[Rfam]
RNA sequence: AAAAUGAGUAGAAGCUGUCAACCGUGGUUUCACCCGGUGGGUCAUUGCUCGAUCG
Numbered sequence: 001a002a003a004a005u006g007a008g009u010a011g012a013a014g015c016u017g018u019c020a021a022c023c024g025u026g027g028u029u030u031c032a033c034c035c036g037g038u039g040g041g042u043c044a045u046u047g048c049u050c051g052a053u054c055g
Stems, first nucleotide, its partner, number of pairs: 005051006015040001019041001021038003024033003
This 55-nucleotide sequence from Pantoea sp. YR343 belongs to the Rfam family "Xanthine riboswitch aptamer (NMT1 RNA)". For this family Rfam cites "A bacterial riboswitch class senses xanthine and uric acid to regulate genes associated with purine oxidation" (Yu and Breaker, RNA, 2020). Lineage of the source: Bacteria > Pseudomonadati > Enterobacterales > Erwiniaceae > Pantoea. Pairs were carried over by alignment from the consensus structure, which is taken from published work.